The record is a 49-nucleotide sequence from Stenotrophomonas maltophilia, which matches "Xanthomonadaceae sRNA sX5" in Rfam. The literature on the family includes a 2011 paper in Nucleic Acids Res by Schmidtke et al., "Genome-wide transcriptome analysis of the plant pathogen Xanthomonas identifies sRNAs with putative virulence functions".
Nucleotides: 049
Stems, first nucleotide, its partner, number of pairs: 007044004013038004022029002
Number, partner (000 for none) and nucleotide at each position: 001000c002000g003000g004000c005000u006000g007044c008043c009042g010041u011000u012000u013038g014037u015036u016035c017000c018000c019000u020000c021000c022029c023028c024000u025000c026000a027000c028023g029022g030000c031000u032000u033000c034000a035016g036015g037014a038013u039000u040000g041010g042009c043008g044007g045000g046000u047000u048000u049000u